[Rfam]
Rfam assigns this 163-nucleotide RNA sequence from Actinomyces howellii to the family "c-di-AMP riboswitch aptamer (ydaO/yuaA leader)". From the family's description: This family represents a conserved RNA structure found upstream of the ydaO and yuaA genes in Bacillus subtilis and related genes in other bacteria.
RNA sequence: CGCACGGCCCGGGCGAUUCCCGAACCAGCGGCAGGAACGGGGGAACCACGCUCGGUCCUCCGGGGGGACCCGGAAGACCUCGGGGUGAAGCCCGCAUGAUGCGGGCCGGGCGUCUCCAGCCCGAACCCGACAGCUCACCUCGUCGGCCACUCAGGAGAGAUCA
Numbered sequence: 001c002g003c004a005c006g007g008c009c010c011g012g013g014c015g016a017u018u019c020c021c022g023a024a025c026c027a028g029c030g031g032c033a034g035g036a037a038c039g040g041g042g043g044a045a046c047c048a049c050g051c052u053c054g055g056u057c058c059u060c061c062g063g064g065g066g067g068a069c070c071c072g073g074a075a076g077a078c079c080u081c082g083g084g085g086u087g088a089a090g091c092c093c094g095c096a097u098g099a100u101g102c103g104g105g106c107c108g109g110g111c112g113u114c115u116c117c118a119g120c121c122c123g124a125a126c127c128c129g130a131c132a133g134c135u136c137a138c139c140u141c142g143u144c145g146g147c148c149a150c151u152c153a154g155g156a157g158a159g160a161u162c163a
Stems, first nucleotide, its partner, number of pairs: 006148004018036003037143006047082001083128003091105004108122004